[Rfam]
RNA sequence: AUGAUGAGACUUCCGUACCGGGGUAUCCCGGGCGGCUCGGUGAGAACCACGGAGGGGUAGAACGGCCCAUGG
Number, nucleotide and partner (000 for none) at each position: 001a000002u000003g000004a000005u000006g000007a000008g000009a000010c000011u000012u069013c035014c034015g033016u032017a000018c000019c000020g000021g000022g000023g000024u000025a000026u000027c000028c000029c000030g000031g000032g016033c015034g014035g013036c054037u053038c052039g000040g050041u049042g048043a000044g000045a000046a000047c000048c042049a041050c040051g000052g038053a037054g036055g068056g067057g066058u000059a000060g000061a000062a000063c000064g000065g000066c057067c056068c055069a012070u000071g000072g000